[Rfam]
RNA: int-alpA RNA
RNA sequence: AACCCGCCUAGCUCGACGGAGCGAAAAGCCGGCCACCUACCGGCCUGGCGGGAAUCUCACUAGGCUUGGCG
Numbered sequence: 001a002a003c004c005c006g007c008c009u010a011g012c013u014c015g016a017c018g019g020a021g022c023g024a025a026a027a028g029c030c031g032g033c034c035a036c037c038u039a040c041c042g043g044c045c046u047g048g049c050g051g052g053a054a055u056c057u058c059a060c061u062a063g064g065c066u067u068g069g070c071g
Stems, first nucleotide, its partner, number of pairs: 003052006011022004028044005037069003